Background
A member of the RNA family "CRISPR RNA direct repeat element" from Saccharothrix syringae, 37 nucleotides long. The organism belongs to Saccharothrix, within Bacteria.

RNA sequence: GCAGCACCGGCCCUCCGGGACCGGUGAGGAUCGCAAC
Numbered sequence: 001g002c003a004g005c006a007c008c009g010g011c012c013c014u015c016c017g018g019g020a021c022c023g024g025u026g027a028g029g030a031u032c033g034c035a036a037c
Stems, first nucleotide, its partner, number of pairs: 005026006012019002
A search with the family's covariance model found it, with a score of 40 bits.